Rfam assigns this 69-nucleotide sequence from Pyrus ussuriensis x Pyrus communis to the family "Plastid-clpP 5UTR RNA".

RNA sequence: UAUUUUGCUCGUAAGAACAAAAAGAAGCAGAUCUAUUCUACACCCGAUAAGUACCAAUACGCAAUGGUA
Numbered sequence: 001u002a003u004u005u006u007g008c009u010c011g012u013a014a015g016a017a018c019a020a021a022a023a024g025a026a027g028c029a030g031a032u033c034u035a036u037u038c039u040a041c042a043c044c045c046g047a048u049a050a051g052u053a054c055c056a057a058u059a060c061g062c063a064a065u066g067g068u069a
Stems, first nucleotide, its partner, number of pairs: 003022002006019002009016002044067002051060003
Dot-bracket structure: ..((.((.((....)).)).)).....................((.....(((....))).....))..
Plastid clpP is a non-coding RNA (ncRNA) recognised in plastids. It was found in the prime untranslated region (5UTR) of a protease complex subunit (clpP) in plastids, suggesting a posible cis-regulatory function. The family's consensus secondary structure was predicted with LocARNA.